[Rfam]
RNA sequence: GACUUGGUCCAAAGGUAGUGAGUUCUCCCAAUUGAUUGUUCAGUUUUAGAGCCAACUCCUUGUACUGUUUCUCUGUUCUCACUACUGCACUUGACUAGUCUUUA
Numbered sequence: 001g002a003c004u005u006g007g008u009c010c011a012a013a014g015g016u017a018g019u020g021a022g023u024u025c026u027c028c029c030a031a032u033u034g035a036u037u038g039u040u041c042a043g044u045u046u047u048a049g050a051g052c053c054a055a056c057u058c059c060u061u062g063u064a065c066u067g068u069u070u071c072u073c074u075g076u077u078c079u080c081a082c083u084a085c086u087g088c089a090c091u092u093g094a095c096u097a098g099u100c101u102u103u104a
Stems, first nucleotide, its partner, number of pairs: 001100003005097005011092002015088002017083006038065002041062002
RNA: Y RNA
Organism: Saimiri boliviensis